[Rfam]
RNA sequence: AAAAAGGGCUUCUGCCGUGAAUGGUACAGGGGAGGGGAGUGAUCCUCUUCUCCCUUGCGGAAUCGCUAUCAAGAGAUUUCGGAAGCACAAUUUUUGCUACUUGAGGCUGCUGGUGCUCACUGGUCCCGGCGCCUCC
Dot-bracket structure: .......((((((((((....)))))((((((((((((.......))))))))))))(((((((..........)))))))))))).................((((.(((((.(.((...)).))))))))))..

Shown here is a 136-nucleotide RNA from Oryzias latipes, a member of the family "U11 spliceosomal RNA". For this family Rfam cites "Identification of an evolutionarily divergent U11 small nuclear ribonucleoprotein particle in Drosophila" (Schneider et al., Proc Natl Acad Sci U S A, 2004). Rfam classes the family as a spliceosomal small nuclear RNA. Taxonomically the source falls in Oryzias (Eukaryota, Chordata, Vertebrata, Eurypterygia).